The record is a 46-nucleotide sequence from Candidula unifasciata, which matches "Histone 3' UTR stem-loop" in Rfam. It scores 38 bits against the family's covariance model. The organism belongs to Candidula, within Eukaryota. Rfam links the family to the GO term mRNA 3'-end processing by stem-loop binding and cleavage. Pairs were carried over by alignment from the consensus structure, which is taken from published work.
[Rfam]
RNA sequence: ACAACGGUCCUUUUUAGGACCACCCAAAAAAAAAGAAGAGAUUACU
Numbered sequence: 001a002c003a004a005c006g007g008u009c010c011u012u013u014u015u016a017g018g019a020c021c022a023c024c025c026a027a028a029a030a031a032a033a034a035g036a037a038g039a040g041a042u043u044a045c046u
Base pairs, nucleotide, nucleotide: 006021007020008019009018010017011016
Rfam's curators write: The mRNAs of metazoan histone genes lack a poly-A tail. 3' end processing occurs at a site between a highly conserved stem-loop (modelled by this family) and a purine rich region around 20 nts downstream (the histone downstream element, or HDE).
By type it is a cis-regulatory element.